[Rfam]
Plant signal recognition particle RNA: a 293-nucleotide RNA from Marchantia polymorpha.
RNA sequence: UCUGGGAGCGUAGCGGCUGUCUGUAACCCGAGCGGGAGUAAGAGAGACGGGAGCUGGGGCUCUUGCAGAGGACCGUUGGGAUCAUGUUGAAGGCAUGUCCACUCGAAGCGUGGAGUCUCUGAUCUGGGCUCCUCGGCGGAAGCCAGGGGAGUCUGAGGGAGAUAAUGUGGAGGGCACAGCGUGAGGCGGGCGACCGAGCAGCGAUCACUUCCCGCUCUGCGCAGUCGAGGGACCACGUGCUUGAAUGAUUGCCAGCGACCAUCCGACGUGAGCAGCCUCCAGCCACCUCUCUC
Numbered sequence: 001u002c003u004g005g006g007a008g009c010g011u012a013g014c015g016g017c018u019g020u021c022u023g024u025a026a027c028c029c030g031a032g033c034g035g036g037a038g039u040a041a042g043a044g045a046g047a048c049g050g051g052a053g054c055u056g057g058g059g060c061u062c063u064u065g066c067a068g069a070g071g072a073c074c075g076u077u078g079g080g081a082u083c084a085u086g087u088u089g090a091a092g093g094c095a096u097g098u099c100c101a102c103u104c105g106a107a108g109c110g111u112g113g114a115g116u117c118u119c120u121g122a123u124c125u126g127g128g129c130u131c132c133u134c135g136g137c138g139g140a141a142g143c144c145a146g147g148g149g150a151g152u153c154u155g156a157g158g159g160a161g162a163u164a165a166u167g168u169g170g171a172g173g174g175c176a177c178a179g180c181g182u183g184a185g186g187c188g189g190g191c192g193a194c195c196g197a198g199c200a201g202c203g204a205u206c207a208c209u210u211c212c213c214g215c216u217c218u219g220c221g222c223a224g225u226c227g228a229g230g231g232a233c234c235a236c237g238u239g240c241u242u243g244a245a246u247g248a249u250u251g252c253c254a255g256c257g258a259c260c261a262u263c264c265g266a267c268g269u270g271a272g273c274a275g276c277c278u279c280c281a282g283c284c285a286c287c288u289c290u291c292u293c
Stems, first nucleotide, its partner, number of pairs: 002038002004022003007018003027036003042293006049286001051284001053283001055281003058277003062272005070264003074257006081250001082248003085244001091242008099231002102229005108222009118160003123155001126154009135144003162166001169212005178205001180203003187196003

On this family, see Wild et al., Curr Opin Struct Biol 2002: "Towards the structure of the mammalian signal recognition particle".
The family is grouped with related families in Rfam's "SRP clan".